[Rfam]
RNA: Small Cajal body specific RNA 21
RNA sequence: UGGCUCAGUUUCCUGGUGGGGUGGGCUCAGCCUGCCUCACCUCCCUUCACAGGAGCCUAGAGCAGAGAGGCUGGGAGCCCUCCCGCACAGGGGAGGCGAUUAAGACAGAAGCCUCGCCUGCAUUGUCCUUGCCUCACAUUU
Numbered sequence: 001u002g003g004c005u006c007a008g009u010u011u012c013c014u015g016g017u018g019g020g021g022u023g024g025g026c027u028c029a030g031c032c033u034g035c036c037u038c039a040c041c042u043c044c045c046u047u048c049a050c051a052g053g054a055g056c057c058u059a060g061a062g063c064a065g066a067g068a069g070g071c072u073g074g075g076a077g078c079c080c081u082c083c084c085g086c087a088c089a090g091g092g093g094a095g096g097c098g099a100u101u102a103a104g105a106c107a108g109a110a111g112c113c114u115c116g117c118c119u120g121c122a123u124u125g126u127c128c129u130u131g132c133c134u135c136a137c138a139u140u141u
Base pairs, nucleotide, nucleotide: 002057003056004055005054006053015045016044018043019042020041021040022039023038024037025036067135068134069133070132071131073129074128075127081120089114090113091112